A member of the RNA family "mir-7 microRNA precursor family" from Austrofundulus limnaeus, 90 nucleotides long.
[Rfam]
RNA sequence: AGUGUGACACGUUGUGGAAGACUAGUGAUUUUGUUGUUGUAAUUUCACAUUUUUGACAACAAGUCACAGUCUGCCUCAGCGUUUCCCACC
Numbered sequence: 001a002g003u004g005u006g007a008c009a010c011g012u013u014g015u016g017g018a019a020g021a022c023u024a025g026u027g028a029u030u031u032u033g034u035u036g037u038u039g040u041a042a043u044u045u046c047a048c049a050u051u052u053u054u055g056a057c058a059a060c061a062a063g064u065c066a067c068a069g070u071c072u073g074c075c076u077c078a079g080c081g082u083u084u085c086c087c088a089c090c
Stems, first nucleotide, its partner, number of pairs: 002089003006085002010081005016075002019072005025067007033060006
This family represents the microRNA (miRNA) precursor mir-7. It scores 75 bits against the family's covariance model.